[Rfam]
RNA sequence: GCAUAGGUUUGAAUUUAUGGUUUGAAUUUUCCCGUCAGUCUCAUAGUGUCUCAUGCCAGAGCAAACCGGCCCCGAACCAUUGUCUGGCCUCUGUGUCUGAGGCUGCUGGCACUGAAAGGGGUUGCACAUUG
Numbered sequence: 001g002c003a004u005a006g007g008u009u010u011g012a013a014u015u016u017a018u019g020g021u022u023u024g025a026a027u028u029u030u031c032c033c034g035u036c037a038g039u040c041u042c043a044u045a046g047u048g049u050c051u052c053a054u055g056c057c058a059g060a061g062c063a064a065a066c067c068g069g070c071c072c073c074g075a076a077c078c079a080u081u082g083u084c085u086g087g088c089c090u091c092u093g094u095g096u097c098u099g100a101g102g103c104u105g106c107u108g109g110c111a112c113u114g115a116a117a118g119g120g121g122u123u124g125c126a127c128a129u130u131g
Base pairs, nucleotide, nucleotide: 001056002055003054004053005051006050007049008048015046016045017044018043019042020041022038023037024036067124068123069122070121071120072119078114079113083109084108085105086104087103088102089101090100
The record is a 131-nucleotide RNA sequence from Ictidomys tridecemlineatus, which matches "Small nucleolar RNA SNORA42/SNORA80 family" in Rfam. About the family: The members of this family belong to the H/ACA class of snoRNAs that guide the sites of modification of uridines to pseudouridines. Human ACA42 (SNORA42) was cloned from HeLa cells by immunoprecipitation with anti-GAR1 antibody. Its is predicted to guide the pseudouridylation of residues U109 and U572 of 18S rRNA. ACA42 shares the same host gene with ACA26, ACA46, ACA50. This family also includes mammalian snoRNA ACA67 (SNORA80) which was identified by computational screening and its expression in mouse experimentally verified by Northern blot and primer extension analysis. Rfam 15.1 lists 1,535 matches to the family in 183 species. A search with the family's covariance model found it, with a score of 102 bits. The family's RNA type in Rfam is H/ACA-box small nucleolar RNA. Pairs were carried over by alignment from the consensus structure, which was predicted with RNAalifold. For this family Rfam cites "A computational screen for mammalian pseudouridylation guide H/ACA RNAs" (Schattner et al., RNA, 2006). Taxonomically the source falls in Ictidomys (Eukaryota, Eumetazoa, Dipnotetrapodomorpha, Mammalia).